This 68-nucleotide RNA belongs to the Rfam family "S15-Flavobacteria ribosomal protein leader". The base pairs follow the family's consensus structure, which is taken from published work.
RNA sequence: UACUUUUGCAGCCUUGAUUAUCAAAACGGUAGUCAGUACAUAAAAAUCAUUUUAACAAUAUUGGCAUG
Numbered sequence: 001u002a003c004u005u006u007u008g009c010a011g012c013c014u015u016g017a018u019u020a021u022c023a024a025a026a027c028g029g030u031a032g033u034c035a036g037u038a039c040a041u042a043a044a045a046a047u048c049a050u051u052u053u054a055a056c057a058a059u060a061u062u063g064g065c066a067u068g
Stems, first nucleotide, its partner, number of pairs: 015035006